[Rfam]
RNA sequence: UUUGCGUUAGGGAUAGCAGCGACAUCCUUUUUUUGAAAUGUAACGAAGUGGAAUUACAACAAAAGAUACAGCGGAAAGCCCGACCUGCA
Numbered sequence: 001u002u003u004g005c006g007u008u009a010g011g012g013a014u015a016g017c018a019g020c021g022a023c024a025u026c027c028u029u030u031u032u033u034u035g036a037a038a039u040g041u042a043a044c045g046a047a048g049u050g051g052a053a054u055u056a057c058a059a060c061a062a063a064a065g066a067u068a069c070a071g072c073g074g075a076a077a078g079c080c081c082g083a084c085c086u087g088c089a
Stems, first nucleotide, its partner, number of pairs: 010081003014077001019072002024067003030062002033059003037055003
RNA: Flavo-1 RNA
Organism: Lutibacter agarilyticus